[Rfam]
RNA: Small nucleolar RNA SNORD87
Organism: Dromas ardeola
RNA sequence: GCUGGCAUAAUGAUGAUAGCUCUUUGCCGUUUACCCAACUGAAUGUUGUGAUGAGCAGUGUUGAAUCUGAUGUGCCAGC
Numbered sequence: 001g002c003u004g005g006c007a008u009a010a011u012g013a014u015g016a017u018a019g020c021u022c023u024u025u026g027c028c029g030u031u032u033a034c035c036c037a038a039c040u041g042a043a044u045g046u047u048g049u050g051a052u053g054a055g056c057a058g059u060g061u062u063g064a065a066u067c068u069g070a071u072g073u074g075c076c077a078g079c
Stems, first nucleotide, its partner, number of pairs: 001079007